Source information: The family of this 58-nucleotide RNA is "Hepatitis C virus stem-loop SL8001 RNA". Even though Hepatitis C virus (HCV) SL8001 is not required for overall replication, conformational changes in this motif tune the initial rate of replication. A reference for the family is Pirakitikulr et al. (2016), "The Coding Region of the HCV Genome Contains a Network of Regulatory RNA Structures", Mol Cell. Rfam classes the family as a cis-regulatory element.
RNA sequence: CUAUCCAGCAAGGCCACUAGACACAUCAGCUCCGUGUGGAAGGACUUGCUGGAAGACA
Numbered sequence: 001c002u003a004u005c006c007a008g009c010a011a012g013g014c015c016a017c018u019a020g021a022c023a024c025a026u027c028a029g030c031u032c033c034g035u036g037u038g039g040a041a042g043g044a045c046u047u048g049c050u051g052g053a054a055g056a057c058a
Base pairs, nucleotide, nucleotide: 004053005052006051007050008049009048010047011046012045014043015042022038023037024036025035026034